Description:
Rfam assigns this 133-nucleotide RNA from Vibrio sp. 10N.286.49.B3 to the family "Histidine operon leader". NCBI's taxonomy places the organism under Bacteria, Pseudomonadota, Vibrionales, Vibrionaceae, Vibrio. By type it is a cis-regulatory leader. At least 6 amino acid operons are known to be regulated by attenuation. In each a leader sequence of 150-200 bp is found upstream of the first gene in the operon. This leader sequence can assume two different secondary structures known as the terminator and the anti-terminator structure. In each case the leader also codes for very short peptide sequence that is rich in the end product amino acid of the operon.

RNA sequence: UCGUCACCAUCAUCACCCAAUCUAGUCUUUCGGGAGGUGUACGCAUACCCGGGAGAGAGGAAGCUCCCGGAGGUUAAAUCAAAUAAUUCAGAUUUAAACCCUCGGAGACUAAACCUCCCGAGGGUUUUUUCAU
Numbered sequence: 001u002c003g004u005c006a007c008c009a010u011c012a013u014c015a016c017c018c019a020a021u022c023u024a025g026u027c028u029u030u031c032g033g034g035a036g037g038u039g040u041a042c043g044c045a046u047a048c049c050c051g052g053g054a055g056a057g058a059g060g061a062a063g064c065u066c067c068c069g070g071a072g073g074u075u076a077a078a079u080c081a082a083a084u085a086a087u088u089c090a091g092a093u094u095u096a097a098a099c100c101c102u103c104g105g106a107g108a109c110u111a112a113a114c115c116u117c118c119c120g121a122g123g124g125u126u127u128u129u130u131c132a133u
Base pairs, nucleotide, nucleotide: 009046010045011039012038013037014036017034018033049070050069051068052067053066054065055064096127097126098125099124100123101122102121103120104119105118107115

Its family is annotated with histidine biosynthetic process in the Gene Ontology.